The family of this 154-nucleotide RNA sequence is "IS605-orfB-II RNA".

[Rfam]
RNA sequence: CAUGAUGGGGUUUUACCUCGGAUUGUAUAGAGGGUAGUCGCAGUCGCCUCAAUCCUGUUUAUUACGAUUUUAACUAAUCCGCUGAUAAAAUAAAUGGAAAACAAAUUUCUAUGAAUUUGGAAAAGUUAAAAGUGUUAAACUUUUAGCUAACUGU
Number, nucleotide and partner (000 for none) at each position: 001c000002a000003u000004g000005a000006u020007g019008g018009g017010g016011u000012u000013u000014u000015a000016c010017c009018u008019c007020g006021g000022a000023u000024u000025g000026u000027a000028u000029a000030g000031a000032g049033g048034g047035u046036a000037g000038u000039c000040g154041c153042a152043g151044u000045c000046g035047c034048c033049u032050c000051a000052a000053u098054c097055c096056u000057g000058u089059u088060u087061a086062u085063u084064a083065c081066g000067a078068u077069u076070u000071u000072a000073a000074c000075u000076a069077a068078u067079c000080c000081g065082c000083u064084g063085a062086u061087a060088a059089a058090a000091u000092a000093a000094a000095u000096g055097g054098a053099a000100a000101a000102c119103a118104a117105a116106u115107u114108u113109c000110u000111a000112u000113g108114a107115a106116u105117u104118u103119g102120g000121a000122a000123a000124a148125g147126u146127u145128a144129a143130a142131a141132g140133u000134g000135u000136u000137a000138a000139a000140c132141u131142u130143u129144u128145a127146g126147c125148u124149a000150a000151c043152u042153g041154u040